[Rfam]
RNA sequence: GUCUCCACCACCACUCCGAGGGCAAACAAUCCUAAGUAGGACUUGGAAUUCCUGGAGAAUUGUUUUUGUGAUAAACUGGAAAUCAUUUCUUUAAUCCCAUCUCUUAGUUUUCCAUAGGGACGUCAGGAAACC
Numbered sequence: 001g002u003c004u005c006c007a008c009c010a011c012c013a014c015u016c017c018g019a020g021g022g023c024a025a026a027c028a029a030u031c032c033u034a035a036g037u038a039g040g041a042c043u044u045g046g047a048a049u050u051c052c053u054g055g056a057g058a059a060u061u062g063u064u065u066u067u068g069u070g071a072u073a074a075a076c077u078g079g080a081a082a083u084c085a086u087u088u089c090u091u092u093a094a095u096c097c098c099a100u101c102u103c104u105u106a107g108u109u110u111u112c113c114a115u116a117g118g119g120a121c122g123u124c125a126g127g128a129a130a131c132c
Stems, first nucleotide, its partner, number of pairs: 006079001015071002017068008026060001038053004086130006095120004

Source information
ODC internal ribosome entry site (IRES): a 132-nucleotide RNA sequence from Tupaia belangeri. Its family is annotated with ribosome binding in the Gene Ontology. Rfam 15.1 lists 437 matches to the family in 128 species. The base pairs follow the family's consensus structure, which was predicted with mfold. Lineage of the source: Eukaryota > Craniata > Boreoeutheria > Euarchontoglires > Tupaia belangeri. It scores 91 bits against the family's covariance model.